[Rfam]
RNA sequence: CUCCAACGAGGAUAGAGGAAGUCGGGGCGACCCGGCUGGCCGCGAAAUUCUCC
Numbered sequence: 001c002u003c004c005a006a007c008g009a010g011g012a013u014a015g016a017g018g019a020a021g022u023c024g025g026g027g028c029g030a031c032c033c034g035g036c037u038g039g040c041c042g043c044g045a046a047a048u049u050c051u052c053c
Stems, first nucleotide, its partner, number of pairs: 020037007
RNA: leuA-Halobacteria RNA